[Rfam]
RNA: Small nucleolar RNA Z43
Organism: Brassica carinata
RNA sequence: GGACAGUGACGAUUAAAAGGUCUCGUUCGUCGUAAUAUCGGCCGUAAAAGGUCUAUUUGCCGACCAUUCUGUUAUAUUCUCUGAGUCC
Numbered sequence: 001g002g003a004c005a006g007u008g009a010c011g012a013u014u015a016a017a018a019g020g021u022c023u024c025g026u027u028c029g030u031c032g033u034a035a036u037a038u039c040g041g042c043c044g045u046a047a048a049a050g051g052u053c054u055a056u057u058u059g060c061c062g063a064c065c066a067u068u069c070u071g072u073u074a075u076a077u078u079c080u081c082u083g084a085g086u087c088c
Base pairs, nucleotide, nucleotide: 001088002087003086004085046058047057048056
Dot-bracket structure: ((((.........................................(((.......)))..........................))))